Rfam assigns this 139-nucleotide RNA from Malus domestica to the family "U4 spliceosomal RNA". For this family Rfam cites "Crystal structure of the spliceosomal 15.5kD protein bound to a U4 snRNA fragment" (Vidovic et al., Mol Cell, 2000). Rfam classes the family as a spliceosomal small nuclear RNA. The base pairs follow the family's consensus structure, which is taken from published work. A search with the family's covariance model found it, with a score of 48 bits.
[Rfam]
RNA sequence: AAAGAAUGGCAAGGUCUGCCUUGAAAUAAUGAGGUUAUAACCGAUGUGCAUUUAUUGUUGGUUGAAAACUAUUUCCAAACUCUCUUAGGCCUUGGUUAAGCCUUGUGCCUUUGAGAAUUUAUGGAAUGGAUCUCUAUUU
Numbered sequence: 001a002a003a004g005a006a007u008g009g010c011a012a013g014g015u016c017u018g019c020c021u022u023g024a025a026a027u028a029a030u031g032a033g034g035u036u037a038u039a040a041c042c043g044a045u046g047u048g049c050a051u052u053u054a055u056u057g058u059u060g061g062u063u064g065a066a067a068a069c070u071a072u073u074u075c076c077a078a079a080c081u082c083u084c085u086u087a088g089g090c091c092u093u094g095g096u097u098a099a100g101c102c103u104u105g106u107g108c109c110u111u112u113g114a115g116a117a118u119u120u121a122u123g124g125a126a127u128g129g130a131u132c133u134c135u136a137u138u139u
Stems, first nucleotide, its partner, number of pairs: 022050002026047003033042003084115002087110004092105001094102002128139004